[Rfam]
RNA sequence: AAAAGAAUAACAUUUGUACCGUAGACAGUAGGUGCUGCAAAGCUUAAUUUCCUACCGAGGUGUGUGAGAUAAAUUAGUGAAACGUUAUGGUUCGCUUACUACACCUCCAUGUCUUUAUUGUCAUGGAGGUUUUUUAUUGCACCU
Numbered sequence: 001a002a003a004a005g006a007a008u009a010a011c012a013u014u015u016g017u018a019c020c021g022u023a024g025a026c027a028g029u030a031g032g033u034g035c036u037g038c039a040a041a042g043c044u045u046a047a048u049u050u051c052c053u054a055c056c057g058a059g060g061u062g063u064g065u066g067a068g069a070u071a072a073a074u075u076a077g078u079g080a081a082a083c084g085u086u087a088u089g090g091u092u093c094g095c096u097u098a099c100u101a102c103a104c105c106u107c108c109a110u111g112u113c114u115u116u117a118u119u120g121u122c123a124u125g126g127a128g129g130u131u132u133u134u135u136a137u138u139g140c141a142c143c144u
Stems, first nucleotide, its partner, number of pairs: 028055005034043003104129008113120001

The family of this 144-nucleotide sequence from Priestia megaterium is "Ribosomal protein L10 leader".
It scores 91 bits against the family's covariance model.
The organism belongs to Priestia megaterium, within Bacteria.
For this family Rfam cites "Ribosomal protein L10(L12)4 autoregulates expression of the Bacillus subtilis rplJL operon by a transcription attenuation mechanism" (Yakhnin et al., Nucleic Acids Res, 2015).